[Rfam]
small nucleolar RNA snoR126: a 110-nucleotide sequence from Coffea arabica. The base pairs follow the family's consensus structure, which was predicted with RNAalifold. The source organism's lineage runs through Eukaryota, Viridiplantae, Tracheophyta, Gunneridae and Coffea. Gene Ontology terms of the family: nucleolus and RNA processing. The literature on the family includes a 2009 paper in Nucleic Acids Res by Chen and Wu, "Mining small RNA sequencing data: a new approach to identify small nucleolar RNAs in Arabidopsis". Rfam 15.1 lists 423 matches to the family in 200 species.
RNA sequence: GGGCAAUGAAGAUUGAAAUCGUUUCUCGAUUCUGAGUUGGUUGAUUAUUCGACCAUUGUUUUUUUUAUCCUGUUUUUCUUUGAUGACCUAUUUGUGCGUGUCUGAGCUCC
Numbered sequence: 001g002g003g004c005a006a007u008g009a010a011g012a013u014u015g016a017a018a019u020c021g022u023u024u025c026u027c028g029a030u031u032c033u034g035a036g037u038u039g040g041u042u043g044a045u046u047a048u049u050c051g052a053c054c055a056u057u058g059u060u061u062u063u064u065u066u067a068u069c070c071u072g073u074u075u076u077u078c079u080u081u082g083a084u085g086a087c088c089u090a091u092u093u094g095u096g097c098g099u100g101u102c103u104g105a106g107c108u109c110c
Base pairs, nucleotide, nucleotide: 001109002108003107004106